[Rfam]
RNA: ZMP/ZTP riboswitch aptamer (pfl RNA motif)
RNA sequence: UGCUCUCCACACGACUGGCGCAGGUGGGUGACCACCAGGGAGUGAACGCGGGAGCAUCGACCGCCUGGGUGCCCCGA
Numbered sequence: 001u002g003c004u005c006u007c008c009a010c011a012c013g014a015c016u017g018g019c020g021c022a023g024g025u026g027g028g029u030g031a032c033c034a035c036c037a038g039g040g041a042g043u044g045a046a047c048g049c050g051g052g053a054g055c056a057u058c059g060a061c062c063g064c065c066u067g068g069g070u071g072c073c074c075c076g077a
Stems, first nucleotide, its partner, number of pairs: 003051002006048001010044003015039002017065004024035004054072005